L31-Gammaproteobacteria ribosomal protein leader: a 50-nucleotide sequence from Thalassotalea sp. HSM 43. The match comes from Rfam's covariance-model search (57 bits). Rfam classes the family as a cis-regulatory leader. NCBI's taxonomy places the organism under Bacteria, Pseudomonadati, Gammaproteobacteria, Alteromonadales, Thalassotalea. Clan: Ribosomal Protein L31 Leader clan. The family's consensus secondary structure is taken from published work.
RNA sequence: CGUAUGGUGUCUGGCACAGGAUCAGAUGGCGAUACGGCCUAAACAGAGGU
Numbered sequence: 001c002g003u004a005u006g007g008u009g010u011c012u013g014g015c016a017c018a019g020g021a022u023c024a025g026a027u028g029g030c031g032a033u034a035c036g037g038c039c040u041a042a043a044c045a046g047a048g049g050u
Stems, first nucleotide, its partner, number of pairs: 001036005007030002011025004015020001